[Rfam]
Shown here is a 184-nucleotide RNA from Lysobacter sp. A03, a member of the family "FMN riboswitch aptamer (RFN element)".
RNA sequence: UAACGUCUUCAGGGCGGGGUGCGAUUCCCCACCGGCGGUAGGUCGCCGGCAGCCGAUCCAUCGGGACGGCAGGCCACGACAAGCCCGCGAGCGCUCCGCUAUCGGCACAAGCCGGCGUCGGGGGUCAGCAGAUCCGGUCGGAUUCCGGAGCCGACGGUCACAGUCCGGAUGAAAGAAGACGGCU
Numbered sequence: 001u002a003a004c005g006u007c008u009u010c011a012g013g014g015c016g017g018g019g020u021g022c023g024a025u026u027c028c029c030c031a032c033c034g035g036c037g038g039u040a041g042g043u044c045g046c047c048g049g050c051a052g053c054c055g056a057u058c059c060a061u062c063g064g065g066a067c068g069g070c071a072g073g074c075c076a077c078g079a080c081a082a083g084c085c086c087g088c089g090a091g092c093g094c095u096c097c098g099c100u101a102u103c104g105g106c107a108c109a110a111g112c113c114g115g116c117g118u119c120g121g122g123g124g125u126c127a128g129c130a131g132a133u134c135c136g137g138u139c140g141g142a143u144u145c146c147g148g149a150g151c152c153g154a155c156g157g158u159c160a161c162a163g164u165c166c167g168g169a170u171g172a173a174a175g176a177a178g179a180c181g182g183c184u
Stems, first nucleotide, its partner, number of pairs: 004181007017029003031164002033153002035088004091129002133149005155167003
Lineage of the source: Bacteria > Pseudomonadota > Gammaproteobacteria > Lysobacterales > Lysobacter. Rfam's curators write: The RFN element is a highly conserved domain that is found frequently in the 5'-untranslated regions of prokaryotic mRNAs that encode for flavin mononucleotide (FMN) biosynthesis and transport proteins. This element is a metabolite-dependent riboswitch that directly binds FMN in the absence of proteins. In Bacillus subtilis, the riboswitch most likely controls gene expression by causing premature transcription termination within the 5' untranslated region of the ribDEAHT operon and precluding access to the ribosome-binding site of ypaA mRNA.The FMN riboswitch structure, reported in present an FMN-bound six-stem junction, adopts a butterfly-like scaffold, stapled together by opposingly directed but nearly identically folded peripheral domains. Its family is annotated with FMN binding in the Gene Ontology.